mir-1343 microRNA precursor family: an 83-nucleotide RNA from Gorilla gorilla. Its family is annotated with RISC complex and miRNA-mediated post-transcriptional gene silencing in the Gene Ontology. NCBI's taxonomy places the organism under Eukaryota, Euteleostomi, Dipnotetrapodomorpha, Haplorrhini, Gorilla.
RNA sequence: CUGGCGUCGGUGCUGAGGAGCGGUCCCCGGGGCGGGCUUCCGCUCCGGCCCCUCCUGGGGCCCGCACUCGCGCUCCGGGCCCG
Numbered sequence: 001c002u003g004g005c006g007u008c009g010g011u012g013c014u015g016a017g018g019a020g021c022g023g024u025c026c027c028c029g030g031g032g033c034g035g036g037c038u039u040c041c042g043c044u045c046c047g048g049c050c051c052c053u054c055c056u057g058g059g060g061c062c063c064g065c066a067c068u069c070g071c072g073c074u075c076c077g078g079g080c081c082c083g
Stems, first nucleotide, its partner, number of pairs: 003081003007078004012073002017068002020065004025060007034051005